The family of this 110-nucleotide sequence from Rhizobiales bacterium PAR1 is "TPP riboswitch aptamer (THI element)". The base pairs follow the family's consensus structure, which is taken from published work. NCBI's taxonomy places the organism under Bacteria, Pseudomonadati, Pseudomonadota, Alphaproteobacteria, Hyphomicrobiales. The literature on the family includes a 2002 paper in J Biol Chem by Rodionov et al., "Comparative genomics of thiamin biosynthesis in procaryotes. New genes and regulatory mechanisms".
[Rfam]
RNA sequence: GGCUUAUCCGAGGGGCGUCGCGUCAGCGGCUGAGAUCGGGGGAAUGUCCCCGAGCACCCUUUGAACCUGAUCCGGGUCAUGCCGGCGAAGGGACGGGAUGCUUCGCGGUU
Numbered sequence: 001g002g003c004u005u006a007u008c009c010g011a012g013g014g015g016c017g018u019c020g021c022g023u024c025a026g027c028g029g030c031u032g033a034g035a036u037c038g039g040g041g042g043a044a045u046g047u048c049c050c051c052g053a054g055c056a057c058c059c060u061u062u063g064a065a066c067c068u069g070a071u072c073c074g075g076g077u078c079a080u081g082c083c084g085g086c087g088a089a090g091g092g093a094c095g096g097g098a099u100g101c102u103u104c105g106c107g108g109u110u
Stems, first nucleotide, its partner, number of pairs: 007097004011060004016054001017030005037052005066091003072085004